Rfam assigns this 143-nucleotide RNA from Acipenser ruthenus to the family "Small nucleolar RNA SNORA79". The family has 25 seed sequences and 944 matches in Rfam 15.1. On this family, see Schattner et al., RNA 2006: "A computational screen for mammalian pseudouridylation guide H/ACA RNAs". The source organism's lineage runs through Eukaryota, Deuterostomia, Teleostomi, Actinopterygii and Acipenser.
RNA sequence: CGAUGACCGUUCCUCCUGUUGCUCAAAGUUCUGGCAAGCAGGAUUUUAGGUUAUCGCAGAUUAUUCUUGGUCCUUUUCACUUGGGGUACUGAGGCAGCAGGGUUUGCCUGUCUUUACUUCAAAUUUUGCGGGACCAGACAAAU
Numbered sequence: 001c002g003a004u005g006a007c008c009g010u011u012c013c014u015c016c017u018g019u020u021g022c023u024c025a026a027a028g029u030u031c032u033g034g035c036a037a038g039c040a041g042g043a044u045u046u047u048a049g050g051u052u053a054u055c056g057c058a059g060a061u062u063a064u065u066c067u068u069g070g071u072c073c074u075u076u077u078c079a080c081u082u083g084g085g086g087u088a089c090u091g092a093g094g095c096a097g098c099a100g101g102g103u104u105u106g107c108c109u110g111u112c113u114u115u116a117c118u119u120c121a122a123a124u125u126u127u128g129c130g131g132g133a134c135c136a137g138a139c140a141a142a143u
Stems, first nucleotide, its partner, number of pairs: 001056008014043005020036004069135006081122008092109005
It is annotated as an H/ACA-box small nucleolar RNA. A search with the family's covariance model found it, with a score of 106 bits. ACA65 (SNORA79) is a member of the H/ACA class of snoRNAs that guide the sites of modification of uridines to pseudouridines. This snoRNA was identified by computational screening and its expression in mouse experimentally verified by Northern blot and primer extension analysis.